[Rfam]
RNA sequence: AAUUAACUUCUUGGUGUCUUAUGAUGAAGCUGCAUAGGGCAGAUUCUGAGUUGAGAAAUAAAAUUUCUCUCCACUGAUUCUCUCUAUAUGCCAUCUGAAGACACUGGUUCCU
Number, nucleotide and partner (000 for none) at each position: 001a000002a000003u000004u000005a000006a000007c000008u000009u000010c000011u107012u106013g105014g104015u103016g102017u101018c100019u099020u000021a000022u000023g000024a000025u000026g000027a000028a000029g094030c000031u000032g091033c090034a089035u088036a000037g083038g082039g081040c000041a000042g078043a000044u000045u077046c076047u000048g074049a000050g072051u000052u000053g069054a068055g067056a066057a065058a000059u000060a000061a000062a000063a000064u000065u057066u056067c055068u054069c053070u000071c000072c050073a000074c048075u000076g046077a045078u042079u000080c000081u039082c038083u037084c000085u000086a000087u000088a035089u034090g033091c032092c000093a000094u029095c000096u000097g000098a000099a019100g018101a017102c016103a015104c014105u013106g012107g011108u000109u000110c000111c000112u000
The family of this 112-nucleotide sequence from Certhia brachydactyla is "Small nucleolar RNA SNORD90". By type it is a C/D-box small nucleolar RNA. NCBI's taxonomy places the organism under Eukaryota, Eumetazoa, Euteleostomi, Tetrapoda, Certhia. A search with the family's covariance model found it, with a score of 58 bits. Gene Ontology terms of the family: nucleolus and RNA processing. About the family: snoRNA HBII-295 belongs to the family of C/D snoRNAs.